Annotation: A member of the RNA family "RNase MRP" from Zea mays, 248 nucleotides long. Rfam classes the family as a ribozyme. Rfam's curators write: RNase MRP is an enzymatically active ribonucleoprotein with two distinct roles in eukaryotes. In mitochondria it plays a direct role in the initiation of mitochondrial DNA replication. It scores 82 bits against the family's covariance model. NCBI's taxonomy places the organism under Eukaryota, Streptophyta, Streptophytina, Petrosaviidae, Zea.

RNA sequence: GCGUCACAGGAUGAAGUGAGCGGGCUUUCAAAGCCCUGGAAAGUCCCCGGGCCUUAAUGCGCAGCGAUGCGCCCACGGACACGUGUACGGCCCACGAGCUGGCUCUCCCUGCUUCGGUGGGGGGCUGAGACACGUGUGGAGCCCAAUUAAAAGGGAGCCGGCUCUGGGUUAAAUGGCCAACUUUGUCUCACAGUUAUUCACUUGGUCCACUAUUGGACUAACAGAACGGGGCUUACACUCCUGUGACG
Number, nucleotide and partner (000 for none) at each position: 001g000002c248003g247004u246005c245006a244007c243008a242009g241010g240011a239012u000013g000014a203015a202016g201017u200018g199019a198020g000021c000022g036023g035024g034025c033026u032027u031028u000029c000030a000031a027032a026033g025034c024035c023036c022037u000038g000039g000040a000041a234042a233043g232044u000045c231046c230047c229048c228049g000050g000051g000052c000053c000054u000055u000056a000057a000058u000059g000060c071061g070062c069063a068064g000065c000066g000067a000068u063069g062070c061071g060072c000073c000074c000075a084076c083077g082078g000079a000080c000081a000082c077083g076084u075085g000086u000087a000088c000089g000090g000091c000092c000093c000094a000095c000096g000097a000098g162099c161100u160101g159102g158103c157104u000105c000106u000107c155108c154109c153110u152111g000112c000113u000114u000115c000116g000117g000118u000119g000120g000121g000122g144123g143124g142125c141126u000127g000128a000129g000130a000131c000132a137133c000134g000135u000136g000137u132138g000139g000140a000141g125142c124143c123144c122145a000146a000147u000148u000149a000150a000151a000152a110153g109154g108155g107156a000157g103158c102159c101160g100161g099162c098163u000164c000165u000166g000167g000168g000169u000170u000171a000172a000173a000174u000175g000176g000177c000178c000179a000180a000181c000182u000183u000184u000185g000186u000187c000188u000189c000190a000191c000192a000193g000194u000195u000196a000197u000198u019199c018200a017201c016202u015203u014204g000205g218206u217207c216208c215209a214210c000211u000212a000213u000214u209215g208216g207217a206218c205219u000220a000221a000222c000223a000224g000225a000226a000227c000228g048229g047230g046231g045232c043233u042234u041235a000236c000237a000238c000239u011240c010241c009242u008243g007244u006245g005246a004247c003248g002